[Rfam]
A member of the RNA family "Group II catalytic intron D1-D4-4", 139 nucleotides long.
The pairing is the family consensus, mapped onto this sequence.
Nucleotides: 139
Stems, first nucleotide, its partner, number of pairs: 020042005050089005055080003059076002065070001097114006116132003
Number, partner (000 for none) and nucleotide at each position: 001000c002000a003000a004000c005000g006000g007000g008000u009000g010000c011000g012000a013000a014000u015000c016000c017000c018000g019000u020042c021041c022040g023039g024038u025000a026000a027000c028000u029000u030000u031000c032000g033000u034000u035000c036000c037000g038024a039023c040022c041021g042020g043000u044000a045000g046000c047000a048000a049000c050089u051088g052087g053086a054085g055080c056079a057078g058000a059076c060075g061000u062000g063000g064000a065070g066000g067000u068000a069000a070065c071000g072000a073000a074000g075060c076059g077000g078057c079056u080055g081000g082000a083000g084000c085054c086053u087052c088051u089050g090000g091000u092000g093000u094000a095000g096000a097114g098113g099112g100111u101110u102109c103000u104000u105000u106000u107000a108000g109102g110101a111100a112099c113098u114097u115000g116132g117131c118130g119000a120000g121000c122000a123000u124000g125000c126000a127000g128000g129000c130118c131117g132116u133000a134000a135000c136000g137000u138000g139000a